[Rfam]
Nucleotides: 130
Stems, first nucleotide, its partner, number of pairs: 003035005009028001011026002014023001067126002070123004076114004085109007093101002
Number, partner (000 for none) and nucleotide at each position: 001000u002000u003035a004034a005033g006032u007031g008000a009028g010000u011026g012025g013000a014023a015000g016000a017000c018000g019000a020000u021000u022000g023014u024000g025012u026011c027000u028009c029000u030000c031007c032006a033005u034004u035003u036000u037000g038000g039000a040000a041000g042000a043000a044000c045000a046000u047000u048000g049000a050000g051000g052000u053000a054000u055000a056000a057000c058000a059000a060000a061000a062000u063000c064000a065000a066000c067126g068125g069000c070123c071122g072121a073120g074000a075000u076114a077113u078112c079111g080000u081000u082000u083000c084000a085109g086108u087107c088106g089105u090104u091103a092000u093101u094100u095000c096000u097000g098000u099000u100094g101093a102000u103091u104090g105089a106088c107087g108086a109085u110000u111079c112078g113077a114076u115000u116000g117000u118000u119000g120073c121072u122071c123070g124000u125068c126067c127000a128000c129000a130000u
This 130-nucleotide RNA sequence from Citrus unshiu belongs to the Rfam family "Small nucleolar RNA snoR111".
The literature on the family includes a 2002 paper in Curr Biol by Marker et al., "Experimental RNomics: identification of 140 candidates for small non-messenger RNAs in the plant Arabidopsis thaliana".
Lineage of the source: Eukaryota > Streptophytina > eudicotyledons > Sapindales > Citrus.
Pairs were carried over by alignment from the consensus structure, which was predicted with WAR.